A member of the RNA family "Small nucleolar RNA snoR136" from Oryza sativa, 143 nucleotides long. Rfam 15.1 lists 452 matches to the family in 212 species.
RNA sequence: UCGGCUUCUCUCAGAUCUAAUCGUGCCUUCGGAUGAAUUUUUGGUUCGUGGGCAAUGGUGAGAUGUGAAGCAAAAGCAAUGUGUUCCUCUCGCUAUCCGGCGCGGAAUUUGUUGAUGCGAUUGGACGUCGAGGAACUACAUCU
Numbered sequence: 001u002c003g004g005c006u007u008c009u010c011u012c013a014g015a016u017c018u019a020a021u022c023g024u025g026c027c028u029u030c031g032g033a034u035g036a037a038u039u040u041u042u043g044g045u046u047c048g049u050g051g052g053c054a055a056u057g058g059u060g061a062g063a064u065g066u067g068a069a070g071c072a073a074a075a076g077c078a079a080u081g082u083g084u085u086c087c088u089c090u091c092g093c094u095a096u097c098c099g100g101c102g103c104g105g106a107a108u109u110u111g112u113u114g115a116u117g118c119g120a121u122u123g124g125a126c127g128u129c130g131a132g133g134a135a136c137u138a139c140a141u142c143u
Stems, first nucleotide, its partner, number of pairs: 001073001004071002008067001010065001011063002016057001024054005030048001032047002083136007091127002096125005107113001